Rfam assigns this 66-nucleotide RNA sequence from Angomonas deanei to the family "Trypanosomatid snoRNA TB9Cs2H1". The match comes from Rfam's covariance-model search (58 bits).
[Rfam]
RNA sequence: GGUUCACUUUGGAGUUGUGUCUUUAACAAAAUCGUGUUUCUGUCUACACACUCGAGUGACCCGAGA
Numbered sequence: 001g002g003u004u005c006a007c008u009u010u011g012g013a014g015u016u017g018u019g020u021c022u023u024u025a026a027c028a029a030a031a032u033c034g035u036g037u038u039u040c041u042g043u044c045u046a047c048a049c050a051c052u053c054g055a056g057u058g059a060c061c062c063g064a065g066a
Base pairs, nucleotide, nucleotide: 001062002061004059005058006057007056017049018048019047020046025038026037027036
On this family, see Liang et al., RNA 2005: "A genome-wide analysis of C/D and H/ACA-like small nucleolar RNAs in Trypanosoma brucei reveals a trypanosome-specific pattern of rRNA modification". The organism belongs to Angomonas, within Eukaryota.